This 110-nucleotide RNA from Trichonephila clavata belongs to the Rfam family "Wolbachia sRNA 46". The base pairs follow the family's consensus structure. The source organism's lineage runs through Eukaryota, Arachnida, Orbiculariae, Araneoidea and Trichonephila. The match comes from Rfam's covariance-model search (70 bits). By type it is a small RNA.

[Rfam]
RNA sequence: UCAUCCCAGUGCCUCUAUGAUGUCAUCCCAGUGCUUGACAUUGGGAUCCAGCUUCUUUUUUUCUAGAUUCCAGUGUCAAGCACUGGAAUGACACCUCUCUUGGGCUCUUU
Numbered sequence: 001u002c003a004u005c006c007c008a009g010u011g012c013c014u015c016u017a018u019g020a021u022g023u024c025a026u027c028c029c030a031g032u033g034c035u036u037g038a039c040a041u042u043g044g045g046a047u048c049c050a051g052c053u054u055c056u057u058u059u060u061u062u063c064u065a066g067a068u069u070c071c072a073g074u075g076u077c078a079a080g081c082a083c084u085g086g087a088a089u090g091a092c093a094c095c096u097c098u099c100u101u102g103g104g105c106u107c108u109u110u
Base pairs, nucleotide, nucleotide: 011105012104013103014102021093022092023091024090025089026088028086029085030084031083032082033081034080035079036078037077038076039075040074041073042072043071044070045069046068047067048066050064051063